Shown here is a 62-nucleotide sequence from Calothrix sp. PCC 7507, a member of the family "Nitrogen stress-induced RNA 1".
Rfam classes the family as a small RNA.
The source organism's lineage runs through Bacteria, Bacillati, Cyanophyceae, Calotrichaceae and Calothrix.
Pairs were carried over by alignment from the consensus structure.

RNA sequence: UGGUAGAUGCACCCUGAUAACUAACUUCCCUGGUAGGACAACUCUUACUAGGGAAUUUUUUU
Numbered sequence: 001u002g003g004u005a006g007a008u009g010c011a012c013c014c015u016g017a018u019a020a021c022u023a024a025c026u027u028c029c030c031u032g033g034u035a036g037g038a039c040a041a042c043u044c045u046u047a048c049u050a051g052g053g054a055a056u057u058u059u060u061u062u
Stems, first nucleotide, its partner, number of pairs: 002013003027054011